A member of the RNA family "FMN riboswitch aptamer (RFN element)" from Megasphaera elsdenii, 132 nucleotides long. Lineage of the source: Bacteria > Bacillati > Negativicutes > Veillonellaceae > Megasphaera elsdenii. Pairs were carried over by alignment from the consensus structure, which is taken from published work.
[Rfam]
RNA sequence: GAUAGUCUUUGAGGCAAGGUGAGAAAGCGGCGCUUUCAAUUCCUGACCGGCGGUGACAGUCCGCUAACCCGCAAGGGUUGAACCGAUGCAAUUUCGGUACCGACAGUACAGUCUGGAUGGGAAAAGACGACA
Numbered sequence: 001g002a003u004a005g006u007c008u009u010u011g012a013g014g015c016a017a018g019g020u021g022a023g024a025a026a027g028c029g030g031c032g033c034u035u036u037c038a039a040u041u042c043c044u045g046a047c048c049g050g051c052g053g054u055g056a057c058a059g060u061c062c063g064c065u066a067a068c069c070c071g072c073a074a075g076g077g078u079u080g081a082a083c084c085g086a087u088g089c090a091a092u093u094u095c096g097g098u099a100c101c102g103a104c105a106g107u108a109c110a111g112u113c114u115g116g117a118u119g120g121g122a123a124a125a126g127a128c129g130a131c132a
Base pairs, nucleotide, nucleotide: 003130005128006127007126008125009124010123017044018043019042046112047111048102049101050064051063052062053061059100060099067078068077069076082098083097084096085095086094104115105114106113